[Rfam]
RNA sequence: GGCCGGGGAUGAUCUAUAUUUAUUUUUCUGACACCUCGUCUGAGGGCGGCGGGCGGCCGCAGCCCCUGCUGACGAUCCACAGCUGAGGCCC
Number, nucleotide and partner (000 for none) at each position: 001g090002g089003c088004c087005g000006g000007g000008g000009a000010u000011g000012a000013u000014c000015u000016a000017u000018a000019u000020u000021u000022a000023u000024u000025u000026u000027u000028c000029u000030g000031a000032c000033a000034c000035c000036u000037c000038g000039u000040c000041u000042g000043a000044g000045g000046g060047c059048g058049g057050c056051g000052g000053g000054c000055g000056g050057c049058c048059g047060c046061a000062g000063c000064c000065c000066c000067u000068g000069c000070u000071g000072a000073c000074g000075a000076u000077c000078c000079a000080c000081a000082g000083c000084u000085g000086a000087g004088g003089c002090c001091c000